[Rfam]
RNA sequence: AGGCUGCAAUAAACAUUCAUUGCUGUCGGUGGGUUUGCACCAGAAUAACUCACUGAUCAAUGAAUGCAGACUGCGGUUCA
Numbered sequence: 001a002g003g004c005u006g007c008a009a010u011a012a013a014c015a016u017u018c019a020u021u022g023c024u025g026u027c028g029g030u031g032g033g034u035u036u037g038c039a040c041c042a043g044a045a046u047a048a049c050u051c052a053c054u055g056a057u058c059a060a061u062g063a064a065u066g067c068a069g070a071c072u073g074c075g076g077u078u079c080a
Stems, first nucleotide, its partner, number of pairs: 002079002004076005014066009025057007033049003
The record is an 80-nucleotide sequence from Poecilia reticulata, which matches "mir-181 microRNA precursor family" in Rfam. A reference for the family is Ambros (2001), "microRNAs: tiny regulators with great potential", Cell. The source organism's lineage runs through Eukaryota, Neopterygii, Osteoglossocephalai, Ctenosquamata and Poecilia. The family's consensus secondary structure was predicted with PFOLD.